[Rfam]
RNA sequence: CUGAGGGUGGCCGACCAUUCGGCUCCGGGACGCAGGUGGGCCUCGUCGCCCAGGUGGGCGCCGUCGGUGACCAUGCCCAGCAGUUGGGCCUCGCCGUACUUCCCGGCGACGAUCCGUUCGAGCCGGCCGUGGGCGAUCAGGAAGACCUCCUCGACCGGCUGUCCCUGUUCGGCGAGGAGGUCGCCGGGCCGGAUGUGCCGGGGCUCGAACCGGGCGGCGAUCUCGGCGAGUACGUCCUGGUCGGGGUAGUCGCGCAGGGCGGGGAGCGCGUCCAACGAGGCCGGUACGACCCGGACUUGGUCGGCGCCCUGCUGAACGAAGAGCACCCGCCCGGCACCGGUCCGCAGGGUCAGCCGCCGGUUGACCCGGUAGGUGCCGGCGGCGACGUCCACCCAGGGCAUCGCCCGCAGCAGGUUGCGGGAGGUGAUGCCCUGCAUCUGUGGUUCGGACUUGGUGGUGGUGGCCAGCUGCCUGGCCGCCUGCGUGGACAGGCUCAACUGCGGCGCGGG
Dot-bracket structure: .....(((((.(..(...(.(((((...(.....((((((.(..((((.(((.((...(((((.((.(......(...((.(....(((...))).).))..)....).))....(.((...(...(.((((((........(.....((..(.(((((..((..(((...)))..))....))))).).))...)......))))..)).)...)..)).).)))))...))((((..((((.(...(((.((....(((.....)))......)).)))...).))))..)))).))).))))).))))))...)...)))..)).)..(((.......))).........(((((((...(((.....))).))))))).)..).)))))(((((((.(((.(.(.(.......)).)..))).))))))).....((((.(.((..(((((.......)))))...)).).))))((.(((.(.(((......)))).))).)).